[Rfam]
RNA: mir-196 microRNA precursor family
RNA sequence: UCUGUGGUUUAGGUAGUUUCAUGUUGUUGGGAUUGCUUUUUCUUAACGCGGCAACAAGAAACUGCCUUAAUUACGUC
Dot-bracket structure: ..(((((((.(((((((((..((((((((.(...............).))))))))..))))))))).)))))))..
Numbered sequence: 001u002c003u004g005u006g007g008u009u010u011a012g013g014u015a016g017u018u019u020c021a022u023g024u025u026g027u028u029g030g031g032a033u034u035g036c037u038u039u040u041u042c043u044u045a046a047c048g049c050g051g052c053a054a055c056a057a058g059a060a061a062c063u064g065c066c067u068u069a070a071u072u073a074c075g076u077c
Stems, first nucleotide, its partner, number of pairs: 003075007011067009022056008031047001